[Rfam]
RNA sequence: UUCUUAUCAAGAGAAGCUUAGGGACUGGACCCAAUGAUGCUUCAGCAACCUCUGUUUAACAGAAAGGUGCUACUUUCAGCAAGAGUAAUUCUUGAAAGAUAAGAG
Numbered sequence: 001u002u003c004u005u006a007u008c009a010a011g012a013g014a015a016g017c018u019u020a021g022g023g024a025c026u027g028g029a030c031c032c033a034a035u036g037a038u039g040c041u042u043c044a045g046c047a048a049c050c051u052c053u054g055u056u057u058a059a060c061a062g063a064a065a066g067g068u069g070c071u072a073c074u075u076u077c078a079g080c081a082a083g084a085g086u087a088a089u090u091c092u093u094g095a096a097a098g099a100u101a102a103g104a105g
Base pairs, nucleotide, nucleotide: 001105002104003103004102005101006100007099008098013043014042015041016040017039021032022031023030026079028077029076044071045070046069047068049067050066051063052062053061054060075097080094081093082092083091084090085089
The family of this 105-nucleotide RNA sequence from Lederbergia lenta is "SAM riboswitch aptamer (S box leader)".
The SAM riboswitch is found upstream of a number of genes which code for proteins involved in methionine or cysteine biosynthesis in Gram-positive bacteria.